[Rfam]
RNA sequence: ACUCUAUUGAAGAUACGCAUGAUAGCGUAGUGCUGAUAGCGUGGAUGCUGCAAGGAAAUGUGGGUUUACGCUAAAAGUAAAAUACGAAUCUAUCCAUGCAAGCAUUUGCCGCCAGUCUCUGGCGGUUUUUUUUCGCCUGCGGAAACUAAUGCGUCAGCGUGUUGGCGGAGGGACGUUGCAUGCGGACUACGGA
Number, nucleotide and partner (000 for none) at each position: 001a000002c000003u000004c000005u000006a000007u000008u000009g000010a000011a000012g000013a000014u000015a000016c000017g000018c032019a031020u030021g028022a000023u000024a000025g000026c000027g000028u021029a000030g020031u019032g018033c000034u000035g000036a000037u000038a000039g071040c070041g069042u068043g067044g000045a000046u064047g000048c062049u000050g061051c060052a059053a000054g000055g000056a000057a000058a000059u052060g051061u050062g048063g000064g046065u000066u000067u043068a042069c041070g040071c039072u000073a000074a000075a000076a000077g000078u000079a000080a000081a000082a000083u000084a000085c000086g000087a000088a000089u000090c000091u000092a000093u000094c000095c000096a000097u000098g000099c000100a000101a000102g000103c000104a000105u000106u000107u000108g126109c125110c124111g123112c122113c121114a120115g119116u000117c000118u000119c115120u114121g113122g112123c111124g110125g109126u108127u000128u000129u000130u000131u000132u000133u000134c000135g000136c000137c000138u000139g000140c000141g000142g000143a000144a000145a000146c000147u000148a000149a000150u189151g188152c000153g187154u186155c185156a000157g183158c182159g181160u180161g179162u000163u000164g000165g000166c000167g000168g000169a000170g000171g000172g000173a000174c000175g000176u000177u000178g000179c161180a160181u159182g158183c157184g000185g155186a154187c153188u151189a150190c000191g000192g000193a000